This 121-nucleotide sequence from Micromonospora maris belongs to the Rfam family "SAM (S-adenosyl methionine) riboswitch aptamer".

RNA sequence: GGUCAUGAGUGUCAGCGUCAAGGCCCCGGCCUGCUGGCCGGCAACCCUCGUGCGUCCGCGGUGGGGUGCCUCCGGGUGAGGACCAGGCCGCCGGCGUCCGCCGGAGAGGCAAGCGCGGACC
Number, nucleotide and partner (000 for none) at each position: 001g084002g083003u082004c081005a000006u000007g000008a000009g039010u000011g038012u037013c036014a035015g034016c033017g000018u000019c000020a000021a000022g031023g030024c000025c000026c000027c000028g000029g000030c023031c022032u000033g016034c015035u014036g013037g012038c011039c009040g070041g069042c068043a000044a000045c066046c065047c064048u000049c061050g000051u000052g000053c060054g000055u000056c000057c000058g000059c000060g053061g049062u000063g000064g047065g046066g045067u000068g042069c041070c040071u000072c000073c000074g000075g000076g000077u000078g000079a000080g000081g004082a003083c002084c001085a000086g000087g110088c109089c108090g000091c106092c103093g102094g101095c100096g000097u000098c000099c000100g095101c094102c093103g092104g000105a000106g091107a000108g089109g088110c087111a000112a000113g000114c000115g000116c000117g000118g000119a000120c000121c000
Taxonomically the source falls in Micromonospora maris (Bacteria, Actinomycetota, Micromonosporales, Micromonospora). The family has 40 seed sequences and 2,360 matches in Rfam 15.1.